This 219-nucleotide RNA sequence from Burkholderia glumae belongs to the Rfam family "Proteobacterial sRNA psRNA2". NCBI's taxonomy places the organism under Bacteria, Pseudomonadota, Betaproteobacteria, Burkholderia, Burkholderia glumae. By type it is a small RNA. The literature on the family includes a 2010 paper in FEMS Microbiol Lett by Gvakharia et al., "Computational prediction and transcriptional analysis of sRNAs in Nitrosomonas europaea". Rfam 15.1 lists 122 matches to the family in 36 species. The match comes from Rfam's covariance-model search (141 bits). The base pairs follow the family's consensus structure.
RNA sequence: GGGUUACUCCUUGGCGCUUGCGCGCUGUUUUGAUGAAGAUUCGCACCUCUAUCAAAACGGGUAACCCCGCCUCUUGGCAAGGCCUUACUGUCAGAUCAAGUCUGAACUUCUACAUGUCAUGCACUACCACACGCCGAUACAUGGCAGCCGACCGUUCCAGUAUGUACAUAUCGACCACACUGAACUGGACAUUGAACUAAUCUCCAGCCGCACGAGCAA
Numbered sequence: 001g002g003g004u005u006a007c008u009c010c011u012u013g014g015c016g017c018u019u020g021c022g023c024g025c026u027g028u029u030u031u032g033a034u035g036a037a038g039a040u041u042c043g044c045a046c047c048u049c050u051a052u053c054a055a056a057a058c059g060g061g062u063a064a065c066c067c068c069g070c071c072u073c074u075u076g077g078c079a080a081g082g083c084c085u086u087a088c089u090g091u092c093a094g095a096u097c098a099a100g101u102c103u104g105a106a107c108u109u110c111u112a113c114a115u116g117u118c119a120u121g122c123a124c125u126a127c128c129a130c131a132c133g134c135c136g137a138u139a140c141a142u143g144g145c146a147g148c149c150g151a152c153c154g155u156u157c158c159a160g161u162a163u164g165u166a167c168a169u170a171u172c173g174a175c176c177a178c179a180c181u182g183a184a185c186u187g188g189a190c191a192u193u194g195a196a197c198u199a200a201u202c203u204c205c206a207g208c209c210g211c212a213c214g215a216g217c218a219a
Base pairs, nucleotide, nucleotide: 001067002066003065004064005063006062007061009060010059014025015024016023017022027058028057029056030055031054032053033052034051035050037048038047069217070216075154076153077152081149082148084147085146090107091106092104093103094102095101096100109143111141114138172210173209186206187205188204189203192199